Notes:
A member of the RNA family "Mammalian CPEB3 ribozyme" from Crocodylus porosus, 78 nucleotides long. The family's consensus secondary structure is taken from published work.
RNA sequence: AGGUCAUAUGUUUGAGGCUACAGAAGAAGCACUCAUACCAUAGUCAUGUCAGAUUCCAAUGAAUCUGUUAAUUCUACU
Numbered sequence: 001a002g003g004u005c006a007u008a009u010g011u012u013u014g015a016g017g018c019u020a021c022a023g024a025a026g027a028a029g030c031a032c033u034c035a036u037a038c039c040a041u042a043g044u045c046a047u048g049u050c051a052g053a054u055u056c057c058a059a060u061g062a063a064u065c066u067g068u069u070a071a072u073u074c075u076a077c078u
Base pairs, nucleotide, nucleotide: 013046016045017044018043019042022078023077025075026074027073028072029041050067051066052065053064054063055062056061